A member of the RNA family "Alphaproteobacteria transfer-messenger RNA" from Holospora obtusa, 379 nucleotides long. By type it is a non-coding RNA gene. Clan: tRNA clan. A search with the family's covariance model found it, with a score of 171 bits. Lineage of the source: Bacteria > Pseudomonadati > Pseudomonadota > Alphaproteobacteria > Holospora obtusa. The family's consensus secondary structure is taken from published work.
Nucleotides: 379
Base pairs, nucleotide, nucleotide: 040049041048042047053184054183055182056181057180063177064176065175066174067173068172078163079162080161082160083159084158088104089103090102091101092100105145106144107143108142109141110140111139185200186199187198188197190210191209192208195206196205344360345359346358347357351376352375353374
Number, partner (000 for none) and nucleotide at each position: 001000g002000c003000u004000a005000u006000u007000g008000c009000u010000c011000u012000u013000a014000a015000c016000u017000a018000u019000a020000a021000a022000a023000u024000a025000u026000g027000c028000u029000a030000a031000a032000g033000u034000g035000a036000a037000a038000a039000c040049g041048c042047c043000a044000u045000u046000u047042g048041g049040c050000u051000a052000u053184a054183a055182c056181g057180a058000u059000a060000a061000a062000c063177a064176c065175u066174g067173u068172g069000g070000g071000a072000a073000g074000u075000a076000a077000a078163c079162g080161u081000u082160g083159c084158g085000g086000a087000c088104c089103c090102g091101g092100g093000g094000g095000c096000a097000g098000a099000g100092c101091c102090c103089g104088g105145c106144g107143c108142c109141u110140c111139c112000a113000c114000c115000u116000a117000a118000a119000g120000a121000g122000a123000u124000u125000u126000u127000u128000u129000c130000u131000u132000u133000u134000u135000g136000c137000a138000u139111g140110g141109g142108g143107g144106c145105g146000a147000a148000u149000u150000a151000g152000g153000a154000u155000c156000g157000a158084c159083g160082u161080g162079c163078g164000u165000u166000a167000a168000a169000a170000c171000g172068u173067a174066u175065a176064g177063u178000u179000u180057u181056c182055g183054u184053u185200c186199a187198u188197c189000a190210u191209g192208g193000u194000a195206c196205c197188g198187a199186u200185g201000u202000u203000u204000u205196g206195g207000g208192c209191c210190g211000u212000c213000a214000a215000u216000a217000u218000a219000a220000a221000u222000g223000c224000g225000a226000a227000u228000u229000u230000u231000g232000a233000u234000a235000a236000c237000g238000c239000a240000u241000u242000u243000g244000g245000c246000a247000a248000a249000a250000u251000u252000u253000c254000u255000g256000u257000a258000a259000a260000g261000a262000a263000u264000g265000c266000c267000g268000c269000a270000a271000a272000c273000g274000g275000u276000a277000g278000a279000c280000u281000u282000u283000c284000a285000g286000a287000u288000a289000g290000u291000g292000u293000a294000c295000g296000g297000c298000a299000u300000g301000c302000u303000g304000u305000a306000g307000c308000a309000g310000c311000u312000u313000a314000a315000g316000g317000c318000g319000c320000u321000c322000c323000g324000g325000u326000a327000a328000g329000u330000a331000a332000a333000c334000a335000c336000u337000g338000a339000g340000c341000c342000a343000g344360c345359g346358g347357u348000u349000u350000u351376g352375g353374g354000a355000g356000c357347a358346c359345c360344g361000a362000g363000c364000a365000a366000c367000a368000g369000a370000a371000a372000g373000c374353u375352c376351c377000c378000a379000a